[Rfam]
RNA sequence: CUCGCCGCCGGCCGAGCGUGACACGCUCGCUCGGGACGAGAUGACAUGUGGCCGGAGACCGGCCGAAUCGCAAG
Numbered sequence: 001c002u003c004g005c006c007g008c009c010g011g012c013c014g015a016g017c018g019u020g021a022c023a024c025g026c027u028c029g030c031u032c033g034g035g036a037c038g039a040g041a042u043g044a045c046a047u048g049u050g051g052c053c054g055g056a057g058a059c060c061g062g063c064c065g066a067a068u069c070g071c072a073a074g
Base pairs, nucleotide, nucleotide: 001040002039003038004037042070043069044068050064051063052062053061054060
The family of this 74-nucleotide sequence is "eL15-Euryarchaeota ribosomal protein leader". It is annotated as a cis-regulatory leader. The literature on the family includes a 2020 paper in BMC Microbiol by Eckert and Weinberg, "Discovery of 20 novel ribosomal leader candidates in bacteria and archaea". Pairs were carried over by alignment from the consensus structure, which is taken from published work.